[Rfam]
RNA sequence: GGGUACUGCUAGUUUUGCUGGUUUGCAGUCAGCUUUAACAGAUGGAUGCUGUGCAAAUCCAUGCAAAACUGACAGUGACG
Number, nucleotide and partner (000 for none) at each position: 001g000002g000003g000004u077005a076006c075007u074008g073009c000010u071011a070012g069013u068014u067015u066016u065017g064018c063019u000020g060021g059022u057023u056024u055025g054026c053027a052028g000029u000030c000031a050032g049033c048034u000035u000036u000037a000038a000039c000040a000041g000042a000043u000044g000045g000046a000047u000048g033049c032050u031051g000052u027053g026054c025055a024056a023057a022058u000059c021060c020061a000062u000063g018064c017065a016066a015067a014068a013069c012070u011071g010072a000073c008074a007075g006076u005077g004078a000079c000080g000